[Rfam]
RNA: mir-2 microRNA precursor family
Organism: Nezara viridula
RNA sequence: CGUCUCACAAAGUGGCUGUCGUAUGUUGUUUAAUCUCCUCAUAUCACAGCCAGCUUUGAUGAGCGGUG
Numbered sequence: 001c002g003u004c005u006c007a008c009a010a011a012g013u014g015g016c017u018g019u020c021g022u023a024u025g026u027u028g029u030u031u032a033a034u035c036u037c038c039u040c041a042u043a044u045c046a047c048a049g050c051c052a053g054c055u056u057u058g059a060u061g062a063g064c065g066g067u068g
Stems, first nucleotide, its partner, number of pairs: 005062003008058005013052007021044001024043003